[Rfam]
Background: Rfam assigns this 67-nucleotide sequence from Bombyx mori to the family "mir-2774 microRNA precursor family". The organism belongs to Bombyx, within Eukaryota.
RNA sequence: AAUACAUUCGGAACGUCGGUAUACCGAGCAAUUUCAUUCGCUCGGUACAAGAUACUCAUAUUGUAUU
Numbered sequence: 001a002a003u004a005c006a007u008u009c010g011g012a013a014c015g016u017c018g019g020u021a022u023a024c025c026g027a028g029c030a031a032u033u034u035c036a037u038u039c040g041c042u043c044g045g046u047a048c049a050a051g052a053u054a055c056u057c058a059u060a061u062u063g064u065a066u067u
Stems, first nucleotide, its partner, number of pairs: 004064003011057002015053003020049001022047008